[Rfam]
RNA sequence: CAAGUUUGAUGCUAAAGCAGAAGCAUUCAGUGUGGUAUGUCAGAUUCCAAAGAAUCUGUGAAUUCUGCU
Numbered sequence: 001c002a003a004g005u006u007u008g009a010u011g012c013u014a015a016a017g018c019a020g021a022a023g024c025a026u027u028c029a030g031u032g033u034g035g036u037a038u039g040u041c042a043g044a045u046u047c048c049a050a051a052g053a054a055u056c057u058g059u060g061a062a063u064u065c066u067g068c069u
Base pairs, nucleotide, nucleotide: 010037011036012035013034016069017068018067019066020065021064022063023033024032025031041058042057043056044055045054046053047052